[Rfam]
RNA sequence: GGUUGGUCCAAGUGCAGUGGUGUUUACAACUAAUUGAUCACAACCAGUUACAGAUUCCUUUGUCCCUUCUCCACUCCCACUGCUUCACUUGACAAAAAAA
Numbered sequence: 001g002g003u004u005g006g007u008c009c010a011a012g013u014g015c016a017g018u019g020g021u022g023u024u025u026a027c028a029a030c031u032a033a034u035u036g037a038u039c040a041c042a043a044c045c046a047g048u049u050a051c052a053g054a055u056u057c058c059u060u061u062g063u064c065c066c067u068u069c070u071c072c073a074c075u076c077c078c079a080c081u082g083c084u085u086c087a088c089u090u091g092a093c094a095a096a097a098a099a100a
Stems, first nucleotide, its partner, number of pairs: 003096002006093003010090002014086001016081005022076001029063002032060002